RNA sequence: UGACGCCCAAACGUGGCGCUCGAGUACUAGGGGUACAGUGAGGGACGCGGUCGAGGUCAGCCGGCACAGAAGGAUUGAGAAACCCGGAGGAAAGAGCAUCGUGGGAGCCUGCCACGGACUUGCGCUCCGGUAAGCGGACGGCGAAUAUGGGAAAGGAAAUCAGCCAGCAUGAGUUGUUUAUAGAGAGUUUAAGUAAGGCUUUAAAGGCGCGAGGAGUAAAGGUGAAAAUAAAACAAUUGUGUAAAUAUUUUGACUAUAUCCAGGAUGUCUGCCCUU
Numbered sequence: 001u002g003a004c005g006c007c008c009a010a011a012c013g014u015g016g017c018g019c020u021c022g023a024g025u026a027c028u029a030g031g032g033g034u035a036c037a038g039u040g041a042g043g044g045a046c047g048c049g050g051u052c053g054a055g056g057u058c059a060g061c062c063g064g065c066a067c068a069g070a071a072g073g074a075u076u077g078a079g080a081a082a083c084c085c086g087g088a089g090g091a092a093a094g095a096g097c098a099u100c101g102u103g104g105g106a107g108c109c110u111g112c113c114a115c116g117g118a119c120u121u122g123c124g125c126u127c128c129g130g131u132a133a134g135c136g137g138a139c140g141g142c143g144a145a146u147a148u149g150g151g152a153a154a155g156g157a158a159a160u161c162a163g164c165c166a167g168c169a170u171g172a173g174u175u176g177u178u179u180a181u182a183g184a185g186a187g188u189u190u191a192a193g194u195a196a197g198g199c200u201u202u203a204a205a206g207g208c209g210c211g212a213g214g215a216g217u218a219a220a221g222g223u224g225a226a227a228a229u230a231a232a233a234c235a236a237u238u239g240u241g242u243a244a245a246u247a248u249u250u251u252g253a254c255u256a257u258a259u260c261c262a263g264g265a266u267g268u269c270u271g272c273c274c275u276u
Stems, first nucleotide, its partner, number of pairs: 006032003013027003037051001082131003089128002096123002100116005142149002160203001162201001163199003210252005216246002220238002223235002262275003266271001
Rfam assigns this 276-nucleotide RNA sequence from Callithrix jacchus to the family "Mason-Pfizer monkey virus packaging signal". The family's RNA type in Rfam is cis-regulatory element. From the family's description: This family represents a group of sequences that are related to the Mason-Pfizer monkey virus (MPMV) packaging signal. The packaging signal is located in the 5' UTR and is required for specific RNA encapsidation. Taxonomically the source falls in Callithrix (Eukaryota, Deuterostomia, Euteleostomi, Haplorrhini).